Shown here is a 45-nucleotide sequence, a member of the family "Plastid-rpl16 group II-D1 intron". Pairs were carried over by alignment from the consensus structure, which was predicted with LocARNA. Gene Ontology term of the family: Group II intron splicing. Rfam's curators put it in the seed alignment. On this family, see Richter et al., Plant Commun 2023: "Retrograde signaling in plants: A critical review focusing on the GUN pathway and beyond". Plastid-rpl16 is a non-coding RNA (ncRNA) recognised in plastids.
[Rfam]
RNA sequence: AAGAGCUUCGAGUCAAUAAAGACUGAGAAGAUUGACUCGCGCACA
Numbered sequence: 001a002a003g004a005g006c007u008u009c010g011a012g013u014c015a016a017u018a019a020a021g022a023c024u025g026a027g028a029a030g031a032u033u034g035a036c037u038c039g040c041g042c043a044c045a
Stems, first nucleotide, its partner, number of pairs: 007041001010038008